[Rfam]
RNA sequence: GUAUCAAUGACGAGAACAAUUGUCUGAGGAUGCAGAAUGACUCAUGUCAAUAGAAAUAUGGGGUCC
Numbered sequence: 001g002u003a004u005c006a007a008u009g010a011c012g013a014g015a016a017c018a019a020u021u022g023u024c025u026g027a028g029g030a031u032g033c034a035g036a037a038u039g040a041c042u043c044a045u046g047u048c049a050a051u052a053g054a055a056a057u058a059u060g061g062g063g064u065c066c
Base pairs, nucleotide, nucleotide: 001066003064004063005062